The family of this 48-nucleotide sequence from Streptomyces galilaeus is "L31-Actinobacteria ribosomal protein leader". NCBI's taxonomy places the organism under Bacteria, Bacillati, Actinomycetota, Actinomycetes, Streptomyces.
[Rfam]
RNA sequence: UCGGCUCCGGUUCACGCUUUCGCAUCCCGCGGACGGCGACCCGGCGCC
Number, nucleotide and partner (000 for none) at each position: 001u000002c000003g048004g047005c046006u000007c044008c043009g042010g041011u000012u000013c000014a000015c038016g037017c036018u035019u000020u033021c032022g000023c000024a000025u000026c000027c000028c000029g000030c000031g000032g021033a020034c000035g018036g017037c016038g015039a000040c000041c010042c009043g008044g007045c000046g005047c004048c003
Description
The family's RNA type in Rfam is cis-regulatory leader.